A member of the RNA family "Small nucleolar RNA SNORA77" from Ardeotis kori, 133 nucleotides long. It scores 51 bits against the family's covariance model. The family's RNA type in Rfam is H/ACA-box small nucleolar RNA. The base pairs follow the family's consensus structure, which was predicted with RNAalifold. The organism belongs to Ardeotis, within Eukaryota.

[Rfam]
Nucleotides: 133
Stems, first nucleotide, its partner, number of pairs: 001056006014043004018038003022034003068124002071121004076115001078113002082110001086106004
Number, partner (000 for none) and nucleotide at each position: 001056g002055c003054a004053g005052a006051c007000u008000c009000a010000c011000u012000c013000u014043g015042u016041a017040c018038u019037g020036a021000a022034c023033u024032g025000c026000a027000g028000c029000c030000u031000u032024c033023g034022g035000u036020u037019c038018a039000g040017g041016u042015g043014c044000u045000u046000u047000u048000u049000c050000c051006g052005u053004c054003u055002g056001c057000g058000a059000g060000a061000g062000u063000g064000a065000u066000a067000g068124u069123u070000c071121a072120c073119a074118g075000g076115a077000g078113u079112g080000a081000c082110g083000a084000c085000u086106g087105c088104c089103u090000u091000c092000u093000u094000u095000c096000c097000c098000a099000u100000a101000g102000a103089a104088g105087g106086c107000u108000g109000u110082u111000a112079c113078a114000g115076u116000u117000g118074c119073u120072g121071u122000u123069g124068g125000g126000a127000c128000a129000u130000u131000g132000c133000u